[Rfam]
RNA: Actinobacteria sRNA Ms_IGR-5
Organism: Nocardioides daedukensis
RNA sequence: ACACGGGAAAGGAGGUGGUCCGAGGAAUGAAUUCUUUUGGGACUCGUGAGGUGGCUGUCCGCUGGCAGCUCCACUGCUGACAGGCCCCAUUCCGGGCAGCUGGCGACAGUGUCGAAGCCGCCGGCAAUGCACGACAGUCACCCGACCCGCAGGUGCUCCGGACAUCAGUCCGCCGGAGACGGUGCGCAGGUCUCCACCAGGAGAAACCGCCACCACACCUGCGGGUCGCUCCCA
Number, nucleotide and partner (000 for none) at each position: 001a000002c000003a000004c000005g000006g000007g000008a000009a000010a000011g000012g000013a000014g059015g058016u057017g056018g055019u054020c000021c000022g000023a000024g000025g000026a000027a000028u000029g000030a000031a000032u000033u000034c000035u000036u000037u000038u000039g000040g000041g000042a000043c000044u000045c000046g000047u000048g000049a000050g000051g000052u000053g000054g019055c018056u017057g016058u015059c014060c000061g125062c124063u123064g122065g121066c120067a000068g118069c117070u116071c000072c000073a112074c111075u000076g000077c000078u000079g000080a000081c000082a000083g000084g000085c000086c000087c000088c000089a000090u000091u000092c000093c000094g000095g000096g000097c000098a000099g000100c000101u000102g000103g000104c000105g000106a000107c000108a000109g000110u000111g074112u073113c000114g000115a000116a070117g069118c068119c000120g066121c065122c064123g063124g062125c061126a000127a000128u000129g000130c000131a000132c000133g000134a000135c000136a000137g000138u000139c000140a000141c000142c000143c228144g227145a226146c225147c224148c223149g222150c221151a220152g219153g218154u217155g216156c000157u177158c176159c175160g174161g173162a000163c000164a000165u000166c000167a000168g000169u000170c000171c000172g000173c161174c160175g159176g158177a157178g000179a000180c000181g000182g000183u000184g000185c000186g000187c000188a000189g000190g000191u000192c000193u000194c000195c000196a000197c000198c000199a000200g000201g000202a000203g000204a000205a000206a000207c000208c000209g000210c000211c000212a000213c000214c000215a000216c155217a154218c153219c152220u151221g150222c149223g148224g147225g146226u145227c144228g143229c000230u000231c000232c000233c000234a000